About this RNA
Small Cajal body specific RNA 6: a 271-nucleotide sequence from Daphoenositta chrysoptera. Rfam's curators write: U88 is small Cajal body specific RNA (scaRNA). scaRNAs are a novel class of small nuclear RNAs which localise to the Cajal bodies. U88 is found associated with both fibrillarin and Gar1p and co-localises with coilin in Cajal bodies. The match comes from Rfam's covariance-model search (107 bits). The family's RNA type in Rfam is small Cajal body RNA. Lineage of the source: Eukaryota > Bilateria > Sarcopterygii > Tetrapoda > Daphoenositta.
RNA sequence: GGUCGAUGAUGACAAAGAAGUUUUCUGAGUGCACAGGGAAAUUCCACCCCAUUACCCUCUUGGCUCCCAGCAGUCCCUAUUCUAUCAUGCUGUAGUACAGCUGUGAUUGAGGAAGAGAUUGCUGACAGUUUGGGAUUAAUUCAGUUCCAGUUCUCCACAGUGAAGGGAGUUGUGGCACCAAUUGUAAUCCAACAAACCUGGUGAAGAGGAGCUCAUGGUGGUGGGGUGUCGUCAUUUGCUGUGCAUGAUCAAAGGUUUUCAAGCUGAGACC
Numbered sequence: 001g002g003u004c005g006a007u008g009a010u011g012a013c014a015a016a017g018a019a020g021u022u023u024u025c026u027g028a029g030u031g032c033a034c035a036g037g038g039a040a041a042u043u044c045c046a047c048c049c050c051a052u053u054a055c056c057c058u059c060u061u062g063g064c065u066c067c068c069a070g071c072a073g074u075c076c077c078u079a080u081u082c083u084a085u086c087a088u089g090c091u092g093u094a095g096u097a098c099a100g101c102u103g104u105g106a107u108u109g110a111g112g113a114a115g116a117g118a119u120u121g122c123u124g125a126c127a128g129u130u131u132g133g134g135a136u137u138a139a140u141u142c143a144g145u146u147c148c149a150g151u152u153c154u155c156c157a158c159a160g161u162g163a164a165g166g167g168a169g170u171u172g173u174g175g176c177a178c179c180a181a182u183u184g185u186a187a188u189c190c191a192a193c194a195a196a197c198c199u200g201g202u203g204a205a206g207a208g209g210a211g212c213u214c215a216u217g218g219u220g221g222u223g224g225g226g227u228g229u230c231g232u233c234a235u236u237u238g239c240u241g242u243g244c245a246u247g248a249u250c251a252a253a254g255g256u257u258u259u260c261a262a263g264c265u266g267a268g269a270c271c
Stems, first nucleotide, its partner, number of pairs: 001271004036250002042248002046227008064211004068124007081110002084107006090100001132190001134189005147175003153169004